The family of this 46-nucleotide RNA sequence from Geotalea uraniireducens is "Acido-Lenti-1 RNA".
By type it is a small RNA.

RNA sequence: CCGUGGGAUGAAUCCCACGGCUACCGUCAAACGCCCCUCUGGGGCU
Numbered sequence: 001c002c003g004u005g006g007g008a009u010g011a012a013u014c015c016c017a018c019g020g021c022u023a024c025c026g027u028c029a030a031a032c033g034c035c036c037c038u039c040u041g042g043g044g045c046u
Stems, first nucleotide, its partner, number of pairs: 001020008033045005